[Rfam]
RNA: Enterobacterial sRNA STnc550
RNA sequence: CAGAUAUUACUCCAGACCAUAUCGUAAGCUCCUGAUAAUUCGGUAGGUAAACGUUUGCCUUUAAACACCCUGAACUCAUCAAAGUGAGUGCGGUACGCCGGGAAAACGACACUGGACGUCAGGAGGGGAGUCAAUGGCCGGUACGCUAAUAAAUUUAGCGUCGAAUUUUGUCUGAUCUUGAGCAAAAGGGGAAGUAUUAAAACCGUUCUGCUGGCAAAUCACGCAAGAUUUUUCCCAUAUUUUGUGCAAAAAUGCGCAGGCUCACUUUUUGUGGGGAAAUUAAAUGGAGAAAAAUUGAUGAGCACCGAUCUUAAGUAUUCACUCUUCACUACCGUCAUCGUUCUGAGCCUGAUCGUUUUCGGCGCGCUGACCGCUGCACUGCAUUGAUCU
Numbered sequence: 001c002a003g004a005u006a007u008u009a010c011u012c013c014a015g016a017c018c019a020u021a022u023c024g025u026a027a028g029c030u031c032c033u034g035a036u037a038a039u040u041c042g043g044u045a046g047g048u049a050a051a052c053g054u055u056u057g058c059c060u061u062u063a064a065a066c067a068c069c070c071u072g073a074a075c076u077c078a079u080c081a082a083a084g085u086g087a088g089u090g091c092g093g094u095a096c097g098c099c100g101g102g103a104a105a106a107c108g109a110c111a112c113u114g115g116a117c118g119u120c121a122g123g124a125g126g127g128g129a130g131u132c133a134a135u136g137g138c139c140g141g142u143a144c145g146c147u148a149a150u151a152a153a154u155u156u157a158g159c160g161u162c163g164a165a166u167u168u169u170g171u172c173u174g175a176u177c178u179u180g181a182g183c184a185a186a187a188g189g190g191g192a193a194g195u196a197u198u199a200a201a202a203c204c205g206u207u208c209u210g211c212u213g214g215c216a217a218a219u220c221a222c223g224c225a226a227g228a229u230u231u232u233u234c235c236c237a238u239a240u241u242u243u244g245u246g247c248a249a250a251a252a253u254g255c256g257c258a259g260g261c262u263c264a265c266u267u268u269u270u271g272u273g274g275g276g277a278a279a280u281u282a283a284a285u286g287g288a289g290a291a292a293a294a295u296u297g298a299u300g301a302g303c304a305c306c307g308a309u310c311u312u313a314a315g316u317a318u319u320c321a322c323u324c325u326u327c328a329c330u331a332c333c334g335u336c337a338u339c340g341u342u343c344u345g346a347g348c349c350u351g352a353u354c355g356u357u358u359u360c361g362g363c364g365c366g367c368u369g370a371c372c373g374c375u376g377c378a379c380u381g382c383a384u385u386g387a388u389c390u
Base pairs, nucleotide, nucleotide: 015132016131017130018128020126023028030124031123032122033121034120035119042094044092045060046059047058048057049056050055077090078089079088098114100112143197145195146194147193150164153161154160171189172188173187176184268283271280272279